[Rfam]
RNA sequence: CACUUCAUGUGUGACUGGCGUAACGUGGGACACCACGAGGGAGCACAUGCAUAUUACCGCCGUACGCCUGGGCAAAGUAU
Dot-bracket structure: ...(.(((((((..(([[[[[...((((....))))..))..))))))).).......(((..]]]]]..))).......